[Rfam]
RNA sequence: UUAGCUAUUUUAGAUACUGCUUGUAAGCAUGAAUUUUCAUGGAUGCAAGCAAAACAAUGCGUUGUAUCUAUGAUGGCUGGAGAAUUUUGUCAUGAAAAUGAUAAAGCCACAUGGAUGAAAAUCUAAGUGGCUACGAUAUAAAACAAUACGUUUAUAGACAGUAACCAUUUAGAACUUAAUUUCUAAAUGGUUUUUUAUU
Numbered sequence: 001u002u003a004g005c006u007a008u009u010u011u012a013g014a015u016a017c018u019g020c021u022u023g024u025a026a027g028c029a030u031g032a033a034u035u036u037u038c039a040u041g042g043a044u045g046c047a048a049g050c051a052a053a054a055c056a057a058u059g060c061g062u063u064g065u066a067u068c069u070a071u072g073a074u075g076g077c078u079g080g081a082g083a084a085u086u087u088u089g090u091c092a093u094g095a096a097a098a099u100g101a102u103a104a105a106g107c108c109a110c111a112u113g114g115a116u117g118a119a120a121a122u123c124u125a126a127g128u129g130g131c132u133a134c135g136a137u138a139u140a141a142a143a144c145a146a147u148a149c150g151u152u153u154a155u156a157g158a159c160a161g162u163a164a165c166c167a168u169u170u171a172g173a174a175c176u177u178a179a180u181u182u183c184u185a186a187a188u189g190g191u192u193u194u195u196u197a198u199u
Stems, first nucleotide, its partner, number of pairs: 001080007011070006019050007028041003053063003085148001087146004099138001105132006112125003150175003155171003
RNA: Enterococcus sRNA 2410